[Rfam]
RNA sequence: UUGACCCUGGGGUGUACGUCAGUGAAUUAACGUCCCCGAGCCGAUAAGCAAAUACCCAGGAUCAGCUUUUUAUUAGCUAUUGAGCAUGCUCAGCCCGUACUGAGAAGCCUGCGGUUAAUGUUGCUGAUCCACCUUGAACGUCUGGUUCAAGGGCCACAAUUCGCAACGGCACCUUGGGGCAUAC
Numbered sequence: 001u002u003g004a005c006c007c008u009g010g011g012g013u014g015u016a017c018g019u020c021a022g023u024g025a026a027u028u029a030a031c032g033u034c035c036c037c038g039a040g041c042c043g044a045u046a047a048g049c050a051a052a053u054a055c056c057c058a059g060g061a062u063c064a065g066c067u068u069u070u071u072a073u074u075a076g077c078u079a080u081u082g083a084g085c086a087u088g089c090u091c092a093g094c095c096c097g098u099a100c101u102g103a104g105a106a107g108c109c110u111g112c113g114g115u116u117a118a119u120g121u122u123g124c125u126g127a128u129c130c131a132c133c134u135u136g137a138a139c140g141u142c143u144g145g146u147u148c149a150a151g152g153g154c155c156a157c158a159a160u161u162c163g164c165a166a167c168g169g170c171a172c173c174u175u176g177g178g179g180c181a182u183a184c
Base pairs, nucleotide, nucleotide: 005179006178007177008176009175010174011173012172013171014170015169017168018167019166032154033153034152035151038148039147040146041145042144059130060129061128063126064125065124066123070120072119073118074117075116076115077114078113084108085107089104090103091102092101093100